[Rfam]
RNA sequence: UGAGCUGGCCGAGGCAGUCGCUGUAUCUUUGAUGCAGAGGAAAGUCCGGGCUCCGAGGGUAAGAUGCCAGGUAAUGCCUGGGAGGCGUGAGCCUACGGAAAGUGCCACAGAAAAUAAACUACCUAGUGUGCAAACAUUAGGAAAAGGUGAAAAGGUGCGGUAAGAGCGCACCGCAUUUCUGGUAACAGAAAUGGCAAGGUAAACCCCAUCCGGAGCAAGGCCAAAUAGGAGCUUAUGCGUUUACUCGCAAUAGUGUGACCCGCACUGAGCUCGGGUAGGUCGCUUGAGGUAUUCGGUGACGGAUAUCCCAGAUUAAUGACUGUUCACGACAGAACCCGGCUUAUUGGCUGGCUCAUUUU
Numbered sequence: 001u002g003a004g005c006u007g008g009c010c011g012a013g014g015c016a017g018u019c020g021c022u023g024u025a026u027c028u029u030u031g032a033u034g035c036a037g038a039g040g041a042a043a044g045u046c047c048g049g050g051c052u053c054c055g056a057g058g059g060u061a062a063g064a065u066g067c068c069a070g071g072u073a074a075u076g077c078c079u080g081g082g083a084g085g086c087g088u089g090a091g092c093c094u095a096c097g098g099a100a101a102g103u104g105c106c107a108c109a110g111a112a113a114a115u116a117a118a119c120u121a122c123c124u125a126g127u128g129u130g131c132a133a134a135c136a137u138u139a140g141g142a143a144a145a146g147g148u149g150a151a152a153a154g155g156u157g158c159g160g161u162a163a164g165a166g167c168g169c170a171c172c173g174c175a176u177u178u179c180u181g182g183u184a185a186c187a188g189a190a191a192u193g194g195c196a197a198g199g200u201a202a203a204c205c206c207c208a209u210c211c212g213g214a215g216c217a218a219g220g221c222c223a224a225a226u227a228g229g230a231g232c233u234u235a236u237g238c239g240u241u242u243a244c245u246c247g248c249a250a251u252a253g254u255g256u257g258a259c260c261c262g263c264a265c266u267g268a269g270c271u272c273g274g275g276u277a278g279g280u281c282g283c284u285u286g287a288g289g290u291a292u293u294c295g296g297u298g299a300c301g302g303a304u305a306u307c308c309c310a311g312a313u314u315a316a317u318g319a320c321u322g323u324u325c326a327c328g329a330c331a332g333a334a335c336c337c338g339g340c341u342u343a344u345u346g347g348c349u350g351g352c353u354c355a356u357u358u359u
Base pairs, nucleotide, nucleotide: 001355002354003353004352005351006350007349008348009347010346011344013324014323015322016321017320018319019318021037022036023035024034025033026032027031042342043341044340046339047338048337049336050335051215052214053213054212057261058260059259060258063210064209065208066207067081068080069079070078071077082096083094084093085092086091097206098205102204103203104200105199106198119146120145122141123140124139125138126137127136128135129134154172155171156170157169158168159167173195174193175192176191177190178189179188180187181186219281220280221279222278229272230271231270232269233268234267252266253265254264255263256262288307289306290305291304292303293302294301295300

Record summary:
Shown here is a 359-nucleotide sequence from Gammaproteobacteria bacterium SCGC AG-212-F23, a member of the family "Bacterial RNase P class A".